[Rfam]
RNA: U4atac minor spliceosomal RNA
Organism: Rotaria sordida
RNA sequence: UUAGUCCUUGUCUUGGGGAGCAUAACUGUUCAAUGAACGUUUAGUGAGGACAGUUUUGCUGACAAAUUAUUAAUUAUAUCGCAUUAGUAUUACCUCAGUAUUGAUGCAAUUUUUGGCGAG
Number, nucleotide and partner (000 for none) at each position: 001u000002u000003a000004g000005u019006c018007c017008u016009u015010g000011u000012c000013u000014u000015g009016g008017g007018g006019a005020g059021c058022a057023u000024a000025a054026c053027u052028g051029u050030u049031c048032a000033a000034u000035g000036a000037a045038c044039g000040u000041u000042u000043a000044g038045u037046g000047a000048g031049g030050a029051c028052a027053g026054u025055u000056u000057u022058g021059c020060u000061g000062a000063c000064a000065a000066a000067u000068u000069a000070u000071u000072a000073a000074u000075u000076a000077u000078a000079u000080c000081g107082c106083a105084u104085u103086a102087g000088u000089a000090u000091u100092a099093c098094c000095u000096c000097a000098g093099u092100a091101u000102u086103g085104a084105u083106g082107c081108a000109a000110u000111u000112u000113u000114u000115g000116g000117c000118g000119a000120g000